[Rfam]
Rfam assigns this 285-nucleotide part of an RNA from Sporisorium reilianum to the family "Eukaryotic large subunit ribosomal RNA". The sequence is in the family's curated seed alignment. The organism belongs to Sporisorium reilianum, within Eukaryota.
RNA sequence: GAGUCUAACAUGUAUGCGAGUCUUUGGGUGGCAAACCCAUAGGCGCAAUGAAAGUGAAUUCAGGUGGGAUCCGCAAGGUGCACCAUCGACCGAUCCUCACGUCUUUUAAGUCGUGGAUUUGAGUAAGAGCAUACCUGUUGGGACCCGAAAGAUGGUGAACUAUGCCUGAAUAGGGUGAAGCCAGAGGAAACUCUGGUGGAGGCUCGUAGCGGUUCUGACGUGCAAAUCGAUCGUCAAAUUUGGGUAUAGGGGCGAAAGACUAAUCGAACCAUCUAGUAGCUGGUU
Numbered sequence: 001g002a003g004u005c006u007a008a009c010a011u012g013u014a015u016g017c018g019a020g021u022c023u024u025u026g027g028g029u030g031g032c033a034a035a036c037c038c039a040u041a042g043g044c045g046c047a048a049u050g051a052a053a054g055u056g057a058a059u060u061c062a063g064g065u066g067g068g069a070u071c072c073g074c075a076a077g078g079u080g081c082a083c084c085a086u087c088g089a090c091c092g093a094u095c096c097u098c099a100c101g102u103c104u105u106u107u108a109a110g111u112c113g114u115g116g117a118u119u120u121g122a123g124u125a126a127g128a129g130c131a132u133a134c135c136u137g138u139u140g141g142g143a144c145c146c147g148a149a150a151g152a153u154g155g156u157g158a159a160c161u162a163u164g165c166c167u168g169a170a171u172a173g174g175g176u177g178a179a180g181c182c183a184g185a186g187g188a189a190a191c192u193c194u195g196g197u198g199g200a201g202g203c204u205c206g207u208a209g210c211g212g213u214u215c216u217g218a219c220g221u222g223c224a225a226a227u228c229g230a231u232c233g234u235c236a237a238a239u240u241u242g243g244g245u246a247u248a249g250g251g252g253c254g255a256a257a258g259a260c261u262a263a264u265c266g267a268a269c270c271a272u273c274u275a276g277u278a279g280c281u282g283g284u285u
Base pairs, nucleotide, nucleotide: 005141006140007139008138009137010136012134013133014132015131016130017129020044021043022042025039026038027037028036029035048055049054063087064086065085066084067083071078072077089124090123091121092120093119094117095116096115103110104109144283145282147280151273152272153271154270155269156268160249161248162247163246164245165244166243167242168241169240170239171237173205174204175203176202180197181196182195183194184193185192186191209234210233211232212231214230215229217228218227251261252260